[Rfam]
The record is a 79-nucleotide RNA from Momordica charantia, which matches "Small nucleolar RNA R160" in Rfam. Rfam describes the family as follows. snoR160 is a C/D box small nucleolar RNA, which acts as a methylation guide for 25S ribosomal RNA in plants. snoR160 has been alternatively named snoZ270 in rice.

RNA sequence: GGUAAAGUGAUGAAAACUUCGUUACCUGAAACUGAUGUGGAACUCAUAUCAUCCUGGUCUUCAAAGUUCUCUGAUUGCU
Numbered sequence: 001g002g003u004a005a006a007g008u009g010a011u012g013a014a015a016a017c018u019u020c021g022u023u024a025c026c027u028g029a030a031a032c033u034g035a036u037g038u039g040g041a042a043c044u045c046a047u048a049u050c051a052u053c054c055u056g057g058u059c060u061u062c063a064a065a066g067u068u069c070u071c072u073g074a075u076u077g078c079u
Stems, first nucleotide, its partner, number of pairs: 001079005
Record summary:
The match comes from Rfam's covariance-model search (53 bits). Gene Ontology terms of the family: nucleolus and RNA processing. The base pairs follow the family's consensus structure.